Overview
A member of the RNA family "Connexin-43 internal ribosome entry site (IRES)" from Hipposideros armiger, 194 nucleotides long. Rfam 15.1 lists 657 matches to the family in 497 species. Rfam links the family to the GO term ribosome binding. The organism belongs to Hipposideros, within Eukaryota. The family's consensus secondary structure is taken from published work. From the family's description: This family represents the connexin-43 internal ribosome entry site (IRES) which allows cap independent translation during conditions such as heat shock and stress.
RNA sequence: AGCUCUUAUCAGGUAUCAGCAGUUGUCUUUCAUUAGUGGGAAGAGUGAAGAAGGAUACUAAAGAAUACCAGAUUUACUAACUUUACACAGUUUUGAGGGCUUGAACUUUUUUAUUUUACGUCAUCCUCCAAGGAGUACAGUCACUGGUGUGCCUACUUCACUUCUUUUAAGUGAAAGAAUAGCAAACAGGCACU
Numbered sequence: 001a002g003c004u005c006u007u008a009u010c011a012g013g014u015a016u017c018a019g020c021a022g023u024u025g026u027c028u029u030u031c032a033u034u035a036g037u038g039g040g041a042a043g044a045g046u047g048a049a050g051a052a053g054g055a056u057a058c059u060a061a062a063g064a065a066u067a068c069c070a071g072a073u074u075u076a077c078u079a080a081c082u083u084u085a086c087a088c089a090g091u092u093u094u095g096a097g098g099g100c101u102u103g104a105a106c107u108u109u110u111u112u113a114u115u116u117u118a119c120g121u122c123a124u125c126c127u128c129c130a131a132g133g134a135g136u137a138c139a140g141u142c143a144c145u146g147g148u149g150u151g152c153c154u155a156c157u158u159c160a161c162u163u164c165u166u167u168u169a170a171g172u173g174a175a176a177g178a179a180u181a182g183c184a185a186a187c188a189g190g191c192a193c194u
Stems, first nucleotide, its partner, number of pairs: 002020003007015003029135003033131002036128001038126002040122002043119001048115002051112001053111003070094003074090002099106001144189003150184003156177003159173005
Dot-bracket structure: .(((..(((...)))..)))........(((.((.(.((((.(....((.(.(((..............(((.((.............)).)))....(......)..)))).))...).))..)).).)).)))........(((...(((...((((((((.....))))).)))....)))..))).....